[Rfam]
RNA sequence: CCCAGCUACUCUAUAUACUCUCGUAUAAUAGCGGAAAUAAGGUCCGCGAGUUUCUACCAAACGACCGUAAAUCGUUUGACUACGAGUGAAAAACGUAUACCU
Numbered sequence: 001c002c003c004a005g006c007u008a009c010u011c012u013a014u015a016u017a018c019u020c021u022c023g024u025a026u027a028a029u030a031g032c033g034g035a036a037a038u039a040a041g042g043u044c045c046g047c048g049a050g051u052u053u054c055u056a057c058c059a060a061a062c063g064a065c066c067g068u069a070a071a072u073c074g075u076u077u078g079a080c081u082a083c084g085a086g087u088g089a090a091a092a093a094c095g096u097a098u099a100c101c102u
Stems, first nucleotide, its partner, number of pairs: 018088001020086006029049001031047005058078007
Shown here is a 102-nucleotide RNA sequence from Evansella caseinilytica, a member of the family "Purine riboswitch aptamer". The source organism's lineage runs through Bacteria, Bacillati, Bacillota, Bacilli and Evansella. The family has 133 seed sequences and 4,097 matches in Rfam 15.1. The family's consensus secondary structure is taken from published work. The match comes from Rfam's covariance-model search (86 bits).